[Rfam]
Rfam assigns this 53-nucleotide RNA from Gossypium trilobum to the family "Plastid-psbl-rps4 3UTR RNA".
Nucleotides: 053
Stems, first nucleotide, its partner, number of pairs: 009025005027043002030040003
Number, partner (000 for none) and nucleotide at each position: 001000c002000g003000g004000a005000a006000a007000g008000a009025g010024a011023g012022g013021g014000a015000u016000u017000u018000g019000a020000a021013c022012c023011c024010u025009c026000g027043g028042u029000a030040c031039g032038a033000a034000u035000a036000a037000c038032u039031c040030g041000c042028a043027c044000a045000a046000u047000a048000g049000g050000u051000u052000a053000g
NCBI's taxonomy places the organism under Eukaryota, Embryophyta, Tracheophyta, malvids, Gossypium. The family has 200 seed sequences and 1,631 matches in Rfam 15.1. From the family's description: Plastid psbl-rps4-psbC is a non-coding RNA (ncRNA) present in plastids. It is compose of two short stem-loops in tandem in the terminal 3 prime untranslate region (3UTR) mostly in psbl and rps4 seed plants genes. For this family Rfam cites "Retrograde signaling in plants: A critical review focusing on the GUN pathway and beyond" (Richter et al., Plant Commun, 2023).